Notes:
MIR408 microRNA precursor family: a 126-nucleotide RNA sequence from Aegilops tauschii. The family has 8 seed sequences and 299 matches in Rfam 15.1.
[Rfam]
RNA sequence: AGAAGAAGAAAAAAAAGAGGAGAAGAAGAAGGAAUAGAGGAAAAGAAGAGGAAAUAGAAAACAAUUUCUAUUUUUUUCUUCUUCUCCUCUAUUCCUUCUUCUUCUCCUCUUUUUUUUCUUCUUUUU
Number, nucleotide and partner (000 for none) at each position: 001a000002g000003a000004a000005g000006a000007a000008g000009a000010a000011a000012a000013a000014a000015a000016a000017g109018a108019g107020g000021a105022g104023a103024a102025g101026a100027a099028g000029a097030a096031g095032g094033a093034a092035u000036a090037g089038a088039g087040g086041a085042a000043a000044a000045g081046a080047a000048g000049a000050g000051g000052a000053a000054a000055u000056a000057g000058a000059a000060a000061a000062c000063a000064a000065u000066u000067u000068c000069u000070a000071u000072u000073u000074u000075u000076u000077u000078c000079u000080u046081c045082u000083u000084c000085u041086c040087c039088u038089c037090u036091a000092u034093u033094c032095c031096u030097u029098c000099u027100u026101c025102u024103u023104c022105u021106c000107c019108u018109c017110u000111u000112u000113u000114u000115u000116u000117u000118c000119u000120u000121c000122u000123u000124u000125u000126u000